[Rfam]
Notes:
The family of this 164-nucleotide RNA sequence from Butyrivibrio proteoclasticus is "Clostridiales-1 RNA". NCBI's taxonomy places the organism under Bacteria, Clostridia, Lachnospiraceae, Butyrivibrio, Butyrivibrio proteoclasticus. A search with the family's covariance model found it, with a score of 80 bits. The family has 194 seed sequences and 1,172 matches in Rfam 15.1. The family's RNA type in Rfam is small RNA.

RNA sequence: CGAUAUUAGGAAUGAGUAAACACAGUUUUGUGCUUGCACAAAAAACUGUGUUUAUGAAAUGACUUAACGGACACGAGGAAAAAAAGACAUACGAACGAAGUGAGUGUGUCGAUUUCCGAGUGGACGUAGCAUGGCGAGAGCGAAGCAAAGCCAUGCGUAUAUCG
Numbered sequence: 001c002g003a004u005a006u007u008a009g010g011a012a013u014g015a016g017u018a019a020a021c022a023c024a025g026u027u028u029u030g031u032g033c034u035u036g037c038a039c040a041a042a043a044a045a046c047u048g049u050g051u052u053u054a055u056g057a058a059a060u061g062a063c064u065u066a067a068c069g070g071a072c073a074c075g076a077g078g079a080a081a082a083a084a085a086g087a088c089a090u091a092c093g094a095a096c097g098a099a100g101u102g103a104g105u106g107u108g109u110c111g112a113u114u115u116c117c118g119a120g121u122g123g124a125c126g127u128a129g130c131a132u133g134g135c136g137a138g139a140g141c142g143a144a145g146c147a148a149a150g151c152c153a154u155g156c157g158u159a160u161a162u163c164g
Stems, first nucleotide, its partner, number of pairs: 001164006010063001013058001016055013029040004067127003072122003077117004086110007129156007140146002